[Rfam]
RNA sequence: GGCACGUAUCCUGCUUAGAUAACCUCAGGCAGCCAACGGCGGUUGCCAUCAGACAACGACGUCAU
Numbered sequence: 001g002g003c004a005c006g007u008a009u010c011c012u013g014c015u016u017a018g019a020u021a022a023c024c025u026c027a028g029g030c031a032g033c034c035a036a037c038g039g040c041g042g043u044u045g046c047c048a049u050c051a052g053a054c055a056a057c058g059a060c061g062u063c064a065u
Stems, first nucleotide, its partner, number of pairs: 028047007
RNA: narK RNA